[Rfam]
RNA sequence: UGACGGGAUGAAUUCACUCUGGAAUCUCGUUCGGCUGAAUGCUGCUGUUGAGAAUCGGACUCUGAGUGUC
Dot-bracket structure: ........................(((((..((((........)))).))))).................
RNA: Small nucleolar RNA SNORD30
Organism: Alligator mississippiensis